[Rfam]
RNA sequence: GCAGGAGAGGUUCUAGCUACACCCUCUAUAAAAAACUAAGAAUGU
Numbered sequence: 001g002c003a004g005g006a007g008a009g010g011u012u013c014u015a016g017c018u019a020c021a022c023c024c025u026c027u028a029u030a031a032a033a034a035a036c037u038a039a040g041a042a043u044g045u
Stems, first nucleotide, its partner, number of pairs: 006027005016037001
Description
Shown here is a 45-nucleotide sequence from Natronobacillus azotifigens, a member of the family "PreQ1 (pre queuosine) riboswitch aptamer". Rfam 15.1 lists 873 matches to the family in 692 species. Its family is annotated with queuosine biosynthetic process in the Gene Ontology. A reference for the family is Reader et al. (2004), "Identification of four genes necessary for biosynthesis of the modified nucleoside queuosine", J Biol Chem. From the family's description: This family is a bacterial riboswitch that binds to the metabolite preQ1, an intermediate in the biosynthesis of the modified nucleoside queuosine from GTP. One example of this riboswitch is located in the leader of the Bacillus subtilis ykvJKLM (queCDEF) operon which encodes four genes necessary for queuosine production.